[Rfam]
RNA sequence: AAGGGACGCAUCCAAAGGGAUCGCAUUGAUCUCAGCUAAAUUACGCACAUAUAUGUAUAUGUGUACACACACACACAUAUAUAUAAAUAUAGUAUGUGUGUUCAUUUGUUAAAGUUUAAACCGAUCGAGUUGGGAUCAUGCUAUCCUUUUGGAUUCCUUCUU
Numbered sequence: 001a002a003g004g005g006a007c008g009c010a011u012c013c014a015a016a017g018g019g020a021u022c023g024c025a026u027u028g029a030u031c032u033c034a035g036c037u038a039a040a041u042u043a044c045g046c047a048c049a050u051a052u053a054u055g056u057a058u059a060u061g062u063g064u065a066c067a068c069a070c071a072c073a074c075a076c077a078u079a080u081a082u083a084u085a086a087a088u089a090u091a092g093u094a095u096g097u098g099u100g101u102u103c104a105u106u107u108g109u110u111a112a113a114g115u116u117u118a119a120a121c122c123g124a125u126c127g128a129g130u131u132g133g134g135a136u137c138a139u140g141c142u143a144u145c146c147u148u149u150u151g152g153a154u155u156c157c158u159u160c161u162u
Stems, first nucleotide, its partner, number of pairs: 002162005008156001010154012023141004028137010

This 162-nucleotide sequence from Mikania micrantha belongs to the Rfam family "mir-393 microRNA precursor family". Its family is annotated with miRNA-mediated post-transcriptional gene silencing and RISC complex in the Gene Ontology. On this family, see Kruszka et al., J Plant Physiol 2012: "Role of microRNAs and other sRNAs of plants in their changing environments". The source organism's lineage runs through Eukaryota, Pentapetalae, Asterales, Asteraceae and Mikania.